A member of the RNA family "PreQ1 (pre queuosine) riboswitch aptamer" from Amylolactobacillus amylophilus, 45 nucleotides long. The base pairs follow the family's consensus structure. The literature on the family includes a 2022 paper in Nat Commun by Schroeder et al., "A small RNA that cooperatively senses two stacked metabolites in one pocket for gene control". Its family is annotated with queuosine biosynthetic process in the Gene Ontology. Rfam describes the family as follows. This family is a bacterial riboswitch that binds to the metabolite preQ1, an intermediate in the biosynthesis of the modified nucleoside queuosine from GTP. One example of this riboswitch is located in the leader of the Bacillus subtilis ykvJKLM (queCDEF) operon which encodes four genes necessary for queuosine production. PreQ1 binding to the riboswitch aptamer is thought to induce premature transcription termination within the leader to down-regulate expression of these genes.

RNA sequence: CACACUGUGGUUCGUAACCACCCCACAAUAAAAAACUAAGGAGAA
Numbered sequence: 001c002a003c004a005c006u007g008u009g010g011u012u013c014g015u016a017a018c019c020a021c022c023c024c025a026c027a028a029u030a031a032a033a034a035a036c037u038a039a040g041g042a043g044a045a
Stems, first nucleotide, its partner, number of pairs: 006027005015038002